[Rfam]
RNA sequence: CGUCCCGGUGGGGUGCGCUCCUCUUUAAAGGAACGGGAGAGAACCACUACCCAACCCAGCCGUUCCCCUCCCAACUUCCCCCGUCACACGUACGGGUGACGGCGCAGUCGGUUGUCGUAUCGGUGGGGUACGGUCUGCCGCAGCAGCACCAGUGCGUACUCACCAGCACGUGUUCACUGCCAGGUGCUCACCACCACAACCGAAAACAGACGGCCCCCGACAGGACGGCAAUCCUGGCCGAGGGCCUGACCAUCAGGAAGAAAGAGCUUCCCC
Numbered sequence: 001c002g003u004c005c006c007g008g009u010g011g012g013g014u015g016c017g018c019u020c021c022u023c024u025u026u027a028a029a030g031g032a033a034c035g036g037g038a039g040a041g042a043a044c045c046a047c048u049a050c051c052c053a054a055c056c057c058a059g060c061c062g063u064u065c066c067c068c069u070c071c072c073a074a075c076u077u078c079c080c081c082c083g084u085c086a087c088a089c090g091u092a093c094g095g096g097u098g099a100c101g102g103c104g105c106a107g108u109c110g111g112u113u114g115u116c117g118u119a120u121c122g123g124u125g126g127g128g129u130a131c132g133g134u135c136u137g138c139c140g141c142a143g144c145a146g147c148a149c150c151a152g153u154g155c156g157u158a159c160u161c162a163c164c165a166g167c168a169c170g171u172g173u174u175c176a177c178u179g180c181c182a183g184g185u186g187c188u189c190a191c192c193a194c195c196a197c198a199a200c201c202g203a204a205a206a207c208a209g210a211c212g213g214c215c216c217c218c219g220a221c222a223g224g225a226c227g228g229c230a231a232u233c234c235u236g237g238c239c240g241a242g243g244g245c246c247u248g249a250c251c252a253u254c255a256g257g258a259a260g261a262a263a264g265a266g267c268u269u270c271c272c273c
Stems, first nucleotide, its partner, number of pairs: 007254004012071002015068001084099004089094001107185003111181001212246005218240002222235004256271005

This 273-nucleotide RNA sequence belongs to the Rfam family "Streptomyces sRNA 4677". The family has 12 seed sequences and 563 matches in Rfam 15.1. Located in the intergenic region between anti-sigma factor SCO4677 gene and a putative regulatory protein gene SCO4676. scr4677 expression requires the SCO4677 activity and scr4677 sRNA itself seem to affect the levels of the SCO4676-associated transcripts.